[Rfam]
This 141-nucleotide RNA sequence from Mus musculus belongs to the Rfam family "Small nucleolar RNA SNORA48".
RNA sequence: ACCCCCUGGCAAUGGGCAAAGGGAUACCUUAUUGGUGGUAUUCUUAUAUCAUACAGGGAGAGAGCUGAACACAGUCCCUUAUUCGUCCUAGUUUUUUGUCUAUUUUGGGAGUCAAAGCUGUUUUAUGCCUAGGACUCAUAA
Dot-bracket structure: .(.(((((...((((...(((.((((((........)))))))))...)))).))))).)............(((((.............((...(.(..((.((..........)).))..).).))...))))).....
About this RNA
The snoRNA ACA 48 has been identified to guide pseudouridylation of the residue U3797 in the 28S rRNA subunit. The literature on the family includes a 1997 paper in J Mol Biol by Ofengand and Bakin, "Mapping to nucleotide resolution of pseudouridine residues in large subunit ribosomal RNAs from representative eukaryotes, prokaryotes, archaebacteria, mitochondria and chloroplasts". It scores 55 bits against the family's covariance model.